[Rfam]
A member of the RNA family "mir-2985 microRNA precursor family" from Oncorhynchus kisutch, 74 nucleotides long.
Gene Ontology terms of the family: miRNA-mediated post-transcriptional gene silencing and RISC complex.
Pairs were carried over by alignment from the consensus structure, which was predicted with RNAalifold.
It scores 76 bits against the family's covariance model.
A reference for the family is Gunaratne et al. (2011), "Song exposure regulates known and novel microRNAs in the zebra finch auditory forebrain", BMC Genomics.
RNAs can be post-transcriptional modified, in micro RNAs (miRNA) editing of pre-mRNA is a common process.
NCBI's taxonomy places the organism under Eukaryota, Deuterostomia, Vertebrata, Actinopteri, Oncorhynchus.
Nucleotides: 074
Stems, first nucleotide, its partner, number of pairs: 003072005009066009019056003023052011
Number, partner (000 for none) and nucleotide at each position: 001000c002000c003072c004071a005070u006069u007068a008000a009066g010065g011064u012063g013062g014061g015060u016059g017058a018000g019056a020055u021054a022000g023052u024051a025050u026049a027048a028047c029046a030045a031044u032043a033042u034000g035000u036000u037000c038000u039000c040000u041000a042033a043032u044031g045030u046029u047028g048027u049026u050025a051024u052023a053000g054021u055020a056019u057000c058017u059016u060015a061014c062013c063012u064011a065010c066009c067000c068007u069006g070005a071004u072003g073000a074000u